Annotation
The record is a 98-nucleotide sequence, which matches "skipping-rope RNA" in Rfam. Pairs were carried over by alignment from the consensus structure, which is taken from published work.

RNA sequence: GCUAUUUGUGGUGGUAAAUUUUCGUGUUGACCACACGCCGAUGGUACUGACAGGGGAAACCCGAGAGAUGCGGGAGAAUGACACGCCUGCCAAAUAGC
Number, nucleotide and partner (000 for none) at each position: 001g098002c097003u096004a095005u094006u093007u092008g091009u000010g000011g034012u033013g032014g031015u030016a000017a000018a000019u000020u000021u000022u000023c000024g084025u083026g082027u081028u080029g000030a015031c014032c013033a012034c011035a000036c065037g045038c044039c043040g000041a000042u000043g039044g038045u037046a000047c000048u000049g000050a000051c000052a000053g000054g000055g000056g000057a000058a000059a000060c000061c000062c000063g000064a000065g036066a000067g000068a000069u000070g090071c089072g088073g087074g086075a000076g000077a000078a000079u000080g028081a027082c026083a025084c024085g000086c074087c073088u072089g071090c070091c008092a007093a006094a005095u004096a003097g002098c001